[Rfam]
RNA sequence: UGAUUGCACAAUAAGAAAAGUUAUAUAUGCCCAUGAUAUGGUUGGGCGUCUCUACCGGUUACCGUAAAUAAUCGAGCUAUAGGUUUUCAUAUUUUCAGA
Numbered sequence: 001u002g003a004u005u006g007c008a009c010a011a012u013a014a015g016a017a018a019a020g021u022u023a024u025a026u027a028u029g030c031c032c033a034u035g036a037u038a039u040g041g042u043u044g045g046g047c048g049u050c051u052c053u054a055c056c057g058g059u060u061a062c063c064g065u066a067a068a069u070a071a072u073c074g075a076g077c078u079a080u081a082g083g084u085u086u087u088c089a090u091a092u093u094u095u096c097a098g099a
Stems, first nucleotide, its partner, number of pairs: 018085002021082005029047005056074006